[Rfam]
RNA: mir-29 microRNA precursor family
Organism: Anopheles sinensis
RNA sequence: CGGGAACUGGCUUCCAAUCGGUGUUUAGAUGGCAUUUGAAAUCUUUUCUAGCACCAUUCGAAAUCAGUACCCG
Dot-bracket structure: (((((.((((.(((..((.((((..((((.................)))).))))))..))).))))).))))